[Rfam]
Nucleotides: 154
Stems, first nucleotide, its partner, number of pairs: 001138002007028002030135006040068002069120003077096004099114004
Number, partner (000 for none) and nucleotide at each position: 001138c002137c003000g004000a005000g006000a007028u008027c009000a010000g011000c012000a013000c014000c015000u016000a017000c018000c019000c020000g021000a022000u023000g024000a025000c026000a027008g028007g029000g030135a031134c032133g033132g034131g035130g036000g037000a038000a039000c040068c041067a042000c043000g044000a045000a046000g047000u048000c049000g050000g051000g052000c053000a054000c055000c056000a057000c058000c059000g060000g061000u062000g063000c064000c065000c066000u067041u068040g069120g070119g071118g072000u073000g074000a075000a076000g077096c078095c079094g080093c081000a082000c083000g084000g085000a086000a087000a088000g089000u090000a091000c092000c093080g094079c095078g096077g097000c098000c099114g100113g101112g102111u103000c104000a105000u106000c107000u108000c109000c110000g111102a112101u113100c114099c115000g116000a117000a118071u119070c120069c121000g122000a123000c124000a125000g126000c127000u128000c129000a130035c131034u132033u133032c134031g135030u136000a137002g138001g139000c140000g141000u142000c143000a144000g145000g146000a147000g148000a149000c150000c151000a152000c153000a154000c